[Rfam]
RNA sequence: ACAGAUUCCCCGGAGAAGGAACUCCGGGAAAAUAGAAUAAUAAAUAAAUAAUGUAAAUAUGGAAUAGGAAUGAAAGAAUUAAGUUUCAAU
Numbered sequence: 001a002c003a004g005a006u007u008c009c010c011c012g013g014a015g016a017a018g019g020a021a022c023u024c025c026g027g028g029a030a031a032a033u034a035g036a037a038u039a040a041u042a043a044a045u046a047a048a049u050a051a052u053g054u055a056a057a058u059a060u061g062g063a064a065u066a067g068g069a070a071u072g073a074a075a076g077a078a079u080u081a082a083g084u085u086u087c088a089a090u
Base pairs, nucleotide, nucleotide: 007030009028010027011026012025013024014023015022072086073085074084
A member of the RNA family "Plastid-rpl20 3UTR RNA" from Musa balbisiana, 90 nucleotides long. NCBI's taxonomy places the organism under Eukaryota, Streptophyta, Tracheophyta, Musaceae, Musa. Rfam describes the family as follows. Plastid rpl20 is a non-coding RNA (ncRNA) recognised in plastids. It was found in the three prime untranslated region (3UTR) of rpl20 gene, it presence in the 3UTR region sugest a role in transcript maduration. It scores 57 bits against the family's covariance model.